Rfam assigns this 88-nucleotide sequence from Halolactibacillus alkaliphilus to the family "Trans-activating crRNA". From the family's description: RNA-guided Streptococcus pyogenes Cas9 (SpCas9) is a sequence-specific DNA endonuclease, the Trans-activating CRISPR RNA form an hybrid with the crRNA (crRNA/tracrRNA). The RNA hybrid acts as a guide for the endonuclease Cas9. The organism belongs to Halolactibacillus, within Bacteria. The match comes from Rfam's covariance-model search (76 bits). The literature on the family includes a 2012 paper in Science by Jinek et al., "A Programmable Dual-RNA-Guided DNA Endonuclease in Adaptive Bacterial Immunity".

[Rfam]
RNA sequence: UGUUGGAGUUAUUCAAUUCAACAUGGCGAGUUAAAAUAAGGCUUUGACCGAAAUCAACUUAAAGUUGCGCUGUCUCGGCGCUUUUUUU
Numbered sequence: 001u002g003u004u005g006g007a008g009u010u011a012u013u014c015a016a017u018u019c020a021a022c023a024u025g026g027c028g029a030g031u032u033a034a035a036a037u038a039a040g041g042c043u044u045u046g047a048c049c050g051a052a053a054u055c056a057a058c059u060u061a062a063a064g065u066u067g068c069g070c071u072g073u074c075u076c077g078g079c080g081c082u083u084u085u086u087u088u
Stems, first nucleotide, its partner, number of pairs: 001036001003034003008027005040049002057065001059063001067081006